[Rfam]
A member of the RNA family "mir-3473 microRNA precursor family" from Mus spicilegus, 76 nucleotides long.
NCBI's taxonomy places the organism under Eukaryota, Gnathostomata, Euteleostomi, Boreoeutheria, Mus.
RNA sequence: ACUGCUGAGCCAUCUCUCCAGCCCAAAACCACUCUUAAAAAACACCAGAGAGGGGCUGGAGAGAUGGCUCAGCAGU
Numbered sequence: 001a002c003u004g005c006u007g008a009g010c011c012a013u014c015u016c017u018c019c020a021g022c023c024c025a026a027a028a029c030c031a032c033u034c035u036u037a038a039a040a041a042a043c044a045c046c047a048g049a050g051a052g053g054g055g056c057u058g059g060a061g062a063g064a065u066g067g068c069u070c071a072g073c074a075g076u
Stems, first nucleotide, its partner, number of pairs: 002075023